[Rfam]
RNA: T-box leader
RNA sequence: ACAUUUGCGUACGAGCGAAACGAGUACGUCGAUUCGGACUGGAAAGAGAGAGCGGGAUGGUGGGAACGCUUAGACGAAUCGAACGGAACGUCACUUCGCGAGCAAGAAUGGAUGAAUGAAGUAGUCCGUUCCGGGUGGUCCGUUAUCGCCAUAAGAGCUGCAUGCAUUUCGCGUGCAGAAAGUAAGGUGGUACCACGAGUGUCUUCGUCCUUUCA
Numbered sequence: 001a002c003a004u005u006u007g008c009g010u011a012c013g014a015g016c017g018a019a020a021c022g023a024g025u026a027c028g029u030c031g032a033u034u035c036g037g038a039c040u041g042g043a044a045a046g047a048g049a050g051a052g053c054g055g056g057a058u059g060g061u062g063g064g065a066a067c068g069c070u071u072a073g074a075c076g077a078a079u080c081g082a083a084c085g086g087a088a089c090g091u092c093a094c095u096u097c098g099c100g101a102g103c104a105a106g107a108a109u110g111g112a113u114g115a116a117u118g119a120a121g122u123a124g125u126c127c128g129u130u131c132c133g134g135g136u137g138g139u140c141c142g143u144u145a146u147c148g149c150c151a152u153a154a155g156a157g158c159u160g161c162a163u164g165c166a167u168u169u170c171g172c173g174u175g176c177a178g179a180a181a182g183u184a185a186g187g188u189g190g191u192a193c194c195a196c197g198a199g200u201g202u203c204u205u206c207g208u209c210c211u212u213u214c215a
Base pairs, nucleotide, nucleotide: 007103008102016098017097018096019095027085028084029082030081031080032079039073040072050071051070052069053068054067107130108129109128110127111126112125113124132142133141134140158178159177160176161175162174163173164172184212185211186210187209195208196207197206198205199204
Dot-bracket structure: ......((.......((((.......((((((......((.........(((((............))))))).....)))).)).........))))...))...(((((((..........))))))).(((.....)))...............(((((((.......))))))).....((((.......(((((....)))))))))...